A member of the RNA family "Metazoan signal recognition particle RNA" from Argiope bruennichi, 296 nucleotides long. On this family, see Rosenblad et al., RNA Biol 2009: "Kinship in the SRP RNA family". NCBI's taxonomy places the organism under Eukaryota, Chelicerata, Arachnida, Araneoidea, Argiope. The signal recognition particle (SRP) is a universally conserved ribonucleoprotein.
[Rfam]
RNA sequence: ACGGGGGCCGUUGGCGUGGUCCUGUAAUCCAGCCACUCUGGAGGUCAAGGCUGAGGAUGGCUUGAGGUUGGGGGUUCUGUCCUCGACUUUCCCAUGUUGAUCCGGCGUCCGCGCUAAGCACGGGUGUCGAUAUGGUUGAUCUGGGGGAGCUGGGUUAACCAGGUCGACUAAGGAGGGGCGGAUCGGCCCAGGCCGGAAACGGAGCAGGCAAAAGUCCCGCAUGUGGUAGUAACGGGAUUGCGCCAGUGAGUGGGGAGCGAGUGCCAGCCCAACCGAAAGGUUGGACUCAGUCUUUU
Numbered sequence: 001a002c003g004g005g006g007g008c009c010g011u012u013g014g015c016g017u018g019g020u021c022c023u024g025u026a027a028u029c030c031a032g033c034c035a036c037u038c039u040g041g042a043g044g045u046c047a048a049g050g051c052u053g054a055g056g057a058u059g060g061c062u063u064g065a066g067g068u069u070g071g072g073g074g075u076u077c078u079g080u081c082c083u084c085g086a087c088u089u090u091c092c093c094a095u096g097u098u099g100a101u102c103c104g105g106c107g108u109c110c111g112c113g114c115u116a117a118g119c120a121c122g123g124g125u126g127u128c129g130a131u132a133u134g135g136u137u138g139a140u141c142u143g144g145g146g147g148a149g150c151u152g153g154g155u156u157a158a159c160c161a162g163g164u165c166g167a168c169u170a171a172g173g174a175g176g177g178g179c180g181g182a183u184c185g186g187c188c189c190a191g192g193c194c195g196g197a198a199a200c201g202g203a204g205c206a207g208g209c210a211a212a213a214g215u216c217c218c219g220c221a222u223g224u225g226g227u228a229g230u231a232a233c234g235g236g237a238u239u240g241c242g243c244c245a246g247u248g249a250g251u252g253g254g255g256a257g258c259g260a261g262u263g264c265c266a267g268c269c270c271a272a273c274c275g276a277a278a279g280g281u282u283g284g285a286c287u288c289a290g291u292c293u294u295u296u
Stems, first nucleotide, its partner, number of pairs: 001045002004023008028042003047294009058283006066274007077267003081263001083261001087257003091254005097248001102246001104244005109236002112234002115231002118227002121225002124222004128166004133161011145150001168172001175218005186209003193202003